[Rfam]
RNA sequence: UUGUUGGACGCAACAACUGGGUGUGACUGAAUAAACUUACUGGCAUAUAGCUGGUUAAGGUGAUACGACACAGGUGGUGCUGCUCCUAGGGAACUAGGAGAAUCGACUUACCAGUCGGGUUGUAGGCAGAGAUGAUUUCUAAACUGUAGAAAUGCCCAUCUCUUGUUGGUAUACAGGACUCCAACCACCCUCCUU
Numbered sequence: 001u002u003g004u005u006g007g008a009c010g011c012a013a014c015a016a017c018u019g020g021g022u023g024u025g026a027c028u029g030a031a032u033a034a035a036c037u038u039a040c041u042g043g044c045a046u047a048u049a050g051c052u053g054g055u056u057a058a059g060g061u062g063a064u065a066c067g068a069c070a071c072a073g074g075u076g077g078u079g080c081u082g083c084u085c086c087u088a089g090g091g092a093a094c095u096a097g098g099a100g101a102a103u104c105g106a107c108u109u110a111c112c113a114g115u116c117g118g119g120u121u122g123u124a125g126g127c128a129g130a131g132a133u134g135a136u137u138u139c140u141a142a143a144c145u146g147u148a149g150a151a152a153u154g155c156c157c158a159u160c161u162c163u164u165g166u167u168g169g170u171a172u173a174c175a176g177g178a179c180u181c182c183a184a185c186c187a188c189c190c191u192c193c194u195u
Base pairs, nucleotide, nucleotide: 001016002015003014004013005012006011019190020189021188022187023186026061027060039055040054041053042052043051044050064124065123066122067121068120069119071082072081073080075113076112077111078110083100084099085098086097087096088095103118104117105116106115107114128163129162130161131160132159133158134157136152137151138150139149144176145175146174147173165185166184167183168182169181
Background:
The family of this 195-nucleotide RNA sequence is "manA RNA". Pairs were carried over by alignment from the consensus structure, which is taken from published work. manA RNA has been located in 5'UTR regions of genes of mannose or fructose metabolism. Has been proposed as a cis-regulatory element and as a riboswitch candidate for his complex secondary structure.